[Rfam]
RNA: mir-17 microRNA precursor family
Organism: Taeniopygia guttata
RNA sequence: GUCAAAGUGCUUACAGUGCAGGUAGUGAUAUAUAGAACCUACUGCAGUGAAGGCACUUGUAGCAUUAUGUU
Numbered sequence: 001g002u003c004a005a006a007g008u009g010c011u012u013a014c015a016g017u018g019c020a021g022g023u024a025g026u027g028a029u030a031u032a033u034a035g036a037a038c039c040u041a042c043u044g045c046a047g048u049g050a051a052g053g054c055a056c057u058u059g060u061a062g063c064a065u066u067a068u069g070u071u
Base pairs, nucleotide, nucleotide: 001063002062005058006057007056008055009054010053011052012051014049015048017046018045019044021043022042023041024040025039